Rfam assigns this 306-nucleotide sequence from Lactuca saligna to the family "Plant signal recognition particle RNA". The base pairs follow the family's consensus structure, which is taken from published work. It scores 236 bits against the family's covariance model.
RNA sequence: GCUGAGCUUGGUAACGCGAGCUUGUGACUCAAGUGAGGGCUUUAAAGUGGGUUGGACUGAGAUUGAGCCAAGUUUGGUUGGGUUAAGCCGUUGCAAAAUCUGGCUUGCCCGUUCCAAGUUUGGAGUUGGAUCAUGUGGCUCGAGCGAAGGCUUGGGCUUCAUGGUUCCUAGAGCAGAGGGCAAUGCGUUAGGCUGGCUUCACAGAGCUGCGAAUACUUCUCGCUUCGAACAGUGGAAGGAUAACAAGCCGGUGCUCUCUUGGCCCAUAAUAACCAGCCUGGCUCCUUCUAAUGGACUCCCACUUUU
Numbered sequence: 001g002c003u004g005a006g007c008u009u010g011g012u013a014a015c016g017c018g019a020g021c022u023u024g025u026g027a028c029u030c031a032a033g034u035g036a037g038g039g040c041u042u043u044a045a046a047g048u049g050g051g052u053u054g055g056a057c058u059g060a061g062a063u064u065g066a067g068c069c070a071a072g073u074u075u076g077g078u079u080g081g082g083u084u085a086a087g088c089c090g091u092u093g094c095a096a097a098a099u100c101u102g103g104c105u106u107g108c109c110c111g112u113u114c115c116a117a118g119u120u121u122g123g124a125g126u127u128g129g130a131u132c133a134u135g136u137g138g139c140u141c142g143a144g145c146g147a148a149g150g151c152u153u154g155g156g157c158u159u160c161a162u163g164g165u166u167c168c169u170a171g172a173g174c175a176g177a178g179g180g181c182a183a184u185g186c187g188u189u190a191g192g193c194u195g196g197c198u199u200c201a202c203a204g205a206g207c208u209g210c211g212a213a214u215a216c217u218u219c220u221c222g223c224u225u226c227g228a229a230c231a232g233u234g235g236a237a238g239g240a241u242a243a244c245a246a247g248c249c250g251g252u253g254c255u256c257u258c259u260u261g262g263c264c265c266a267u268a269a270u271a272a273c274c275a276g277c278c279u280g281g282c283u284c285c286u287u288c289u290a291a292u293g294g295a296c297u298c299c300c301a302c303u304u305u306u
Stems, first nucleotide, its partner, number of pairs: 001040003004023007028037003044305008054296001057293001060289002065284004071279002074276006080265008093254003100251008109239002112237005118230009128167008137158009168173001175220005184213001186211003193204003